[Rfam]
RNA sequence: AGAGGCCCUCCGCUGCCGGGAUGGAACGCUUGCCUCAUUGCUGCGGUGAUGAAGCAAGCAUUCCGCCAGGCCGCUCACGCUGCCUGC
Numbered sequence: 001a002g003a004g005g006c007c008c009u010c011c012g013c014u015g016c017c018g019g020g021a022u023g024g025a026a027c028g029c030u031u032g033c034c035u036c037a038u039u040g041c042u043g044c045g046g047u048g049a050u051g052a053a054g055c056a057a058g059c060a061u062u063c064c065g066c067c068a069g070g071c072c073g074c075u076c077a078c079g080c081u082g083c084c085u086g087c
Stems, first nucleotide, its partner, number of pairs: 004084003012074002015071003020067001022065005028059006037050005

Description:
mir-9195 microRNA precursor family: an 87-nucleotide RNA sequence from Myotis brandtii. The family has 3 seed sequences and 438 matches in Rfam 15.1. Rfam links the family to the GO terms RISC complex and miRNA-mediated post-transcriptional gene silencing.